The family of this 99-nucleotide sequence from Prolemur simus is "Y RNA". A search with the family's covariance model found it, with a score of 69 bits. Rfam classes the family as a non-coding RNA gene. On this family, see Teunissen et al., Nucleic Acids Res 2000: "Conserved features of Y RNAs: a comparison of experimentally derived secondary structures". From the family's description: Y RNAs are components of the Ro ribonucleoprotein particle (Ro RNP), in association with Ro60 and La proteins. The family has 104 seed sequences and 26,986 matches in Rfam 15.1. Taxonomically the source falls in Prolemur (Eukaryota, Deuterostomia, Vertebrata, Euteleostomi).
RNA sequence: GGCUAGUCCGAGUGCAGUGGUAUUUACAAGUAAUUGAUCACAACCAGUGACAGGUUUUAUUCUUUCUCCACUCCCACUGCUUCAUUUGACUAGCCUAAA
Numbered sequence: 001g002g003c004u005a006g007u008c009c010g011a012g013u014g015c016a017g018u019g020g021u022a023u024u025u026a027c028a029a030g031u032a033a034u035u036g037a038u039c040a041c042a043a044c045c046a047g048u049g050a051c052a053g054g055u056u057u058u059a060u061u062c063u064u065u066c067u068c069c070a071c072u073c074c075c076a077c078u079g080c081u082u083c084a085u086u087u088g089a090c091u092a093g094c095c096u097a098a099a
Stems, first nucleotide, its partner, number of pairs: 001095008010087002014083001016078005028061002032057002